[Rfam]
RNA sequence: AGGUCACUUCACAGAGGGCUUGUGGGGCUGUGAAAGCUGGAGCUCUUAAUGCUGUGACCACAGAUUGAUGUUCUCCAUCGUCACUAAGGAACUGUGUUUUCCUGAGGAGAUAGAGAA
Numbered sequence: 001a002g003g004u005c006a007c008u009u010c011a012c013a014g015a016g017g018g019c020u021u022g023u024g025g026g027g028c029u030g031u032g033a034a035a036g037c038u039g040g041a042g043c044u045c046u047u048a049a050u051g052c053u054g055u056g057a058c059c060a061c062a063g064a065u066u067g068a069u070g071u072u073c074u075c076c077a078u079c080g081u082c083a084c085u086a087a088g089g090a091a092c093u094g095u096g097u098u099u100u101c102c103u104g105a106g107g108a109g110a111u112a113g114a115g116a117a
Stems, first nucleotide, its partner, number of pairs: 002059006014047008023039001026037001072110005080102001086095001088093001
The record is a 117-nucleotide RNA sequence from Hipposideros armiger, which matches "Small nucleolar RNA SNORA25" in Rfam. Its family is annotated with nucleolus and RNA processing in the Gene Ontology. From the family's description: ACA25 is a member of the H/ACA class of snoRNA that guide the sites of modification of uridines to pseudouridines. Lineage of the source: Eukaryota > Teleostomi > Chiroptera > Yinpterochiroptera > Hipposideros. It is annotated as an H/ACA-box small nucleolar RNA. The match comes from Rfam's covariance-model search (86 bits).